[Rfam]
Rfam assigns this 102-nucleotide RNA from Clostridium ljungdahlii to the family "Purine riboswitch aptamer". Rfam 15.1 lists 4,097 matches to the family in 1,411 species. It scores 80 bits against the family's covariance model.
RNA sequence: AACCAUACAUAAGUAAUAACUCGUAUACAUUCGGUAAUAUGGUCCGACAGUUUCUACCUGCUAACCUUAAAUAAGCAGACUACGGGGUAAUAUUUGAAAUUU
Number, nucleotide and partner (000 for none) at each position: 001a000002a000003c000004c000005a000006u000007a000008c000009a000010u000011a000012a000013g000014u000015a000016a000017u000018a088019a000020c086021u085022c084023g083024u082025a081026u000027a000028c000029a000030u000031u047032c046033g045034g044035u000036a000037a000038u000039a000040u000041g000042g000043u000044c034045c033046g032047a031048c000049a000050g000051u000052u000053u000054c000055u000056a000057c000058c078059u077060g076061c075062u074063a000064a072065c000066c000067u000068u000069a000070a000071a000072u064073a000074a062075g061076c060077a059078g058079a000080c000081u025082a024083c023084g022085g021086g020087g000088u018089a000090a000091u000092a000093u000094u000095u000096g000097a000098a000099a000100u000101u000102u000